[Rfam]
RNA: Small nucleolar RNA SNORD67
RNA sequence: UGUGAGAGUGAUGAGUUGCACUAAUCAGUCGGGGUGUUUGACGCAGUGGCAUCAAGACCCCGAUCCGACAGACCUGAGGACACACGCUGUGCACAGGGGCCAUCUGACUCCAC
Numbered sequence: 001u002g003u004g005a006g007a008g009u010g011a012u013g014a015g016u017u018g019c020a021c022u023a024a025u026c027a028g029u030c031g032g033g034g035u036g037u038u039u040g041a042c043g044c045a046g047u048g049g050c051a052u053c054a055a056g057a058c059c060c061c062g063a064u065c066c067g068a069c070a071g072a073c074c075u076g077a078g079g080a081c082a083c084a085c086g087c088u089g090u091g092c093a094c095a096g097g098g099g100c101c102a103u104c105u106g107a108c109u110c111c112a113c
Stems, first nucleotide, its partner, number of pairs: 006110003025068002028065001029063004034058002040053002043050002